The record is a 175-nucleotide RNA from Sorghum bicolor, which matches "MIR6224 microRNA precursor family" in Rfam. The organism belongs to Sorghum, within Eukaryota.
RNA sequence: ACUCCCUCCGUCCUAAUAUAUAAGGCGUAACCACUUUUUGUUCAUAUCUCAUAAUAUAAGGCGUGCUCUCUCACAAACAUUAAUGUAGCACUAUUAGUGCUGAGAGGGAGAGAAUUAAAUACGUUCUUGGUCUUUGAAUCAAAGGGUACGCCUUAUAUACUAGGACGGAGGGAGU
Numbered sequence: 001a002c003u004c005c006c007u008c009c010g011u012c013c014u015a016a017u018a019u020a021u022a023a024g025g026c027g028u029a030a031c032c033a034c035u036u037u038u039u040g041u042u043c044a045u046a047u048c049u050c051a052u053a054a055u056a057u058a059a060g061g062c063g064u065g066c067u068c069u070c071u072c073a074c075a076a077a078c079a080u081u082a083a084u085g086u087a088g089c090a091c092u093a094u095u096a097g098u099g100c101u102g103a104g105a106g107g108g109a110g111a112g113a114a115u116u117a118a119a120u121a122c123g124u125u126c127u128u129g130g131u132c133u134u135u136g137a138a139u140c141a142a143a144g145g146g147u148a149c150g151c152c153u154u155a156u157a158u159a160c161u162a163g164g165a166c167g168g169a170g171g172g173a174g175u
Base pairs, nucleotide, nucleotide: 001175002174003173004172005171006170007169008168009167010166011165012164013163014162015161017159018158019157020156021155022154023153024152025151026150027149028148029147034145035144036143037142038141041138042137043136044135049130050129051128066112067111068110069109070106071105072104074102075101078099079098080097081096082095084093085092